A member of the RNA family "Ruegeria cis2 sRNA" from Pseudooceanicola nanhaiensis, 153 nucleotides long. The match comes from Rfam's covariance-model search (101 bits). The family's consensus secondary structure was predicted with RNAfold. Lineage of the source: Bacteria > Pseudomonadota > Rhodobacterales > Paracoccaceae > Pseudooceanicola. A reference for the family is Rivers et al. (2016), "Experimental Identification of Small Non-Coding RNAs in the Model Marine Bacterium Ruegeria pomeroyi DSS-3", Front Microbiol.
[Rfam]
RNA sequence: GUUCGUGUAGCGCGGGAAGUAGUUGAUGAAGAUGAAGCCCCGCGCCUGGUCGAUGCAGUGGAACAGCGGGUUCCAGUCGAACAUCGCCAGCAUGUAGCCCGGCAGCGAGUUGGCCAGGAACAUCUUGCCCGACGCGAUCAUGUUCGCCCGCUG
Dot-bracket structure: .((..(.(....(((.......)))....).).))...(.((........))..)........(((((.((((.....))))...((.((((((...(.((((((.(..((......))...).))).)))..)....)))))).)).)))))